[Rfam]
RNA sequence: UGGUUCAUCUUACAGGGCAGCAUUAGAUUGAUUCACAUGAUUCUAAUACUGUCAGGUAAUGAUGUCCUC
Numbered sequence: 001u002g003g004u005u006c007a008u009c010u011u012a013c014a015g016g017g018c019a020g021c022a023u024u025a026g027a028u029u030g031a032u033u034c035a036c037a038u039g040a041u042u043c044u045a046a047u048a049c050u051g052u053c054a055g056g057u058a059a060u061g062a063u064g065u066c067c068u069c
Stems, first nucleotide, its partner, number of pairs: 002068002006064004010059004016053005022047006

Rfam assigns this 69-nucleotide RNA sequence from Orchesella cincta to the family "mir-8/mir-141/mir-200 microRNA precursor family".
On this family, see Lagos-Quintana et al., Science 2001: "Identification of novel genes coding for small expressed RNAs".
Lineage of the source: Eukaryota > Eumetazoa > Protostomia > Altocrustacea > Orchesella.
Gene Ontology terms of the family: RISC complex and miRNA-mediated post-transcriptional gene silencing.
The match comes from Rfam's covariance-model search (60 bits).